[Rfam]
RNA sequence: CAAGGGGAUACAGCAGCAAUUCAUGUUUUGAAGUGCUCUAAAUGGUUCAAAACGUGAAGUGCUGCUAUACCCCCUUGUGGGGAA
Numbered sequence: 001c002a003a004g005g006g007g008a009u010a011c012a013g014c015a016g017c018a019a020u021u022c023a024u025g026u027u028u029u030g031a032a033g034u035g036c037u038c039u040a041a042a043u044g045g046u047u048c049a050a051a052a053c054g055u056g057a058a059g060u061g062c063u064g065c066u067a068u069a070c071c072c073c074c075u076u077g078u079g080g081g082g083a084a
Base pairs, nucleotide, nucleotide: 001077002076003075004074005073006072007071009069010068013065014064015063016062017061020058021057022056023055024054025053026052027051028050029049030048031047032046034044
A member of the RNA family "mir-322 microRNA precursor family" from Callithrix jacchus, 84 nucleotides long. Pairs were carried over by alignment from the consensus structure, which was predicted with RNAalifold. Lineage of the source: Eukaryota > Theria > Eutheria > Callithrix > Callithrix. Its family is annotated with miRNA-mediated post-transcriptional gene silencing and RISC complex in the Gene Ontology. The literature on the family includes a 2004 paper in Biochem Biophys Res Commun by Kasashima et al., "Altered expression profiles of microRNAs during TPA-induced differentiation of HL-60 cells".